The record is an 81-nucleotide RNA from Emergencia timonensis, which matches "Clostridiales-2 RNA" in Rfam. The match comes from Rfam's covariance-model search (66 bits). Lineage of the source: Bacteria > Bacillati > Clostridia > Anaerovoracaceae > Emergencia.
RNA sequence: AAAAAGUGGGAUGUGCAGAGGGGAAUGCCCUCGCCGCCCUAAGGAGGGCGCUCAGCCUGCAAAGCAGGUGCAGAAAGGAAC
Numbered sequence: 001a002a003a004a005a006g007u008g009g010g011a012u013g014u015g016c017a018g019a020g021g022g023g024a025a026u027g028c029c030c031u032c033g034c035c036g037c038c039c040u041a042a043g044g045a046g047g048g049c050g051c052u053c054a055g056c057c058u059g060c061a062a063a064g065c066a067g068g069u070g071c072a073g074a075a076a077g078g079a080a081c
Base pairs, nucleotide, nucleotide: 015034016033018032019031020030021029022028055069056068057067058066059065
By type it is a small RNA.